[Rfam]
RNA sequence: UCUCGAUAAAGGCAAACCUGGUGAAAACCAGUGACGCAAAGCUAAAGGGGCUAAGGUGUGAAUAUCACACUACGCCAGCCAGUUACCGAA
Numbered sequence: 001u002c003u004c005g006a007u008a009a010a011g012g013c014a015a016a017c018c019u020g021g022u023g024a025a026a027a028c029c030a031g032u033g034a035c036g037c038a039a040a041g042c043u044a045a046a047g048g049g050g051c052u053a054a055g056g057u058g059u060g061a062a063u064a065u066c067a068c069a070c071u072a073c074g075c076c077a078g079c080c081a082g083u084u085a086c087c088g089a090a
Stems, first nucleotide, its partner, number of pairs: 012037002018031005040084004047080002049076003056070004
RNA: c-di-GMP-I riboswitch aptamer